Rfam assigns this 81-nucleotide RNA from Caulobacter henricii to the family "Makes More Granules Regulator RNA (mmgR)". On this family, see Corbino et al., Genome Biol 2005: "Evidence for a second class of S-adenosylmethionine riboswitches and other regulatory RNA motifs in alpha-proteobacteria". From the family's description: SuhB later renamed mmgR (makes more granules regulator) was a putative non-coding RNA found multiple times in the Agrobacterium tumefaciens genome and related alpha-proteobacteria. Other non-coding RNAs uncovered in the same analysis include: speF, ybhL, metA, and serC.Several studies inSinorhizobium meliloti showed that suhB element is indeed a non-coding RNA:firstly it was detected on Northern blot and called Sm8RNA, secondly in an RNAseq study referred to as SmelC689.The mutant phenotype's (strain lacking the small RNA) cytoplasm contains higher content of polyhydroxybutyrate (PBH)storage granules than wild type strain.
[Rfam]
RNA sequence: GGAGCAUGCCCUUCCAGGGCGUUUCCUCCCAAUGACUCGGCCGCCUUCUUCUCCUGGGAGGCGGCCGUCUUUUUGUCCGGC
Numbered sequence: 001g002g003a004g005c006a007u008g009c010c011c012u013u014c015c016a017g018g019g020c021g022u023u024u025c026c027u028c029c030c031a032a033u034g035a036c037u038c039g040g041c042c043g044c045c046u047u048c049u050u051c052u053c054c055u056g057g058g059a060g061g062c063g064g065c066c067g068u069c070u071u072u073u074u075g076u077c078c079g080g081c
Stems, first nucleotide, its partner, number of pairs: 008020004039066011
Dot-bracket structure: .......((((.....))))..................(((((((((((......)))))))))))...............